[Rfam]
Nucleotides: 239
Stems, first nucleotide, its partner, number of pairs: 007109002015104004026091006038080003049075006112152007154164003180196006201236004212232005
Number, partner (000 for none) and nucleotide at each position: 001000a002000a003000a004000u005000u006000g007109c008108c009000g010000u011000u012000g013000a014000u015104g016103g017102a018101g019000a020000a021000c022000a023000g024000u025000a026091g027090u028089u029088a030087a031086g032000a033000u034000c035000c036000a037000c038080a039079u040078g041000a042000a043000a044000a045000g046000a047000g048000a049075g050074g051073a052072a053071a054070g055000g056000u057000c058000c059000u060000g061000g062000g063000c064000u065000g066000a067000a068000a069000g070054c071053u072052u073051u074050u075049c076000c077000g078040c079039a080038u081000g082000a083000u084000g085000a086031c087030u088029u089028g090027a091026u092000g093000a094000a095000u096000g097000a098000a099000c100000a101018c102017u103016c104015c105000g106000u107000a108008g109007g110000c111000u112152c113151c114150u115149u116148u117147c118146u119000g120000a121000a122000a123000g124000u125000g126000g127000c128000u129000u130000u131000g132000c133000a134000a135000a136000a137000g138000c139000u140000u141000u142000a143000u144000u145000a146118g147117g148116a149115a150114a151113g152112g153000a154164c155163g156162u157000u158000g159000c160000a161000g162156g163155c164154g165000u166000u167000a168000a169000c170000u171000g172000u173000u174000u175000a176000a177000g178000u179000g180196g181195a182194a183193g184192g185191c186000u187000u188000u189000u190000c191185g192184c193183c194182u195181u196180c197000a198000a199000u200000u201236a202235g203234g204233g205000u206000g207000g208000c209000a210000c211000c212232a213231c214230g215229g216228g217000a218000a219000u220000c221000a222000a223000a224000a225000g226000c227000u228216c229215u230214c231213g232212u233204c234203c235202c236201u237000u238000g239000u
The record is a 239-nucleotide RNA sequence from Mesobacillus foraminis, which matches "T-box leader" in Rfam. Rfam classes the family as a cis-regulatory leader. Taxonomically the source falls in Mesobacillus (Bacteria, Bacillati, Bacilli, Caryophanales). The match comes from Rfam's covariance-model search (125 bits). The literature on the family includes a 2000 paper in RNA by Grundy et al., "tRNA determinants for transcription antitermination of the Bacillus subtilis tyrS gene". Rfam describes the family as follows. Uncharged tRNA acts as the effector for transcription antitermination of genes in the T-box leader family. T-boxes are found upstream of many aminoacyl-tRNA synthetase genes and some amino acid biosynthetic genes usually in Gram-positive bacteria. The anticodon of a specific tRNA base pairs to a specifier sequence within the T-box motif, and the NCCA acceptor tail of the tRNA base pairs to a conserved bulge in the T-box antiterminator hairpin.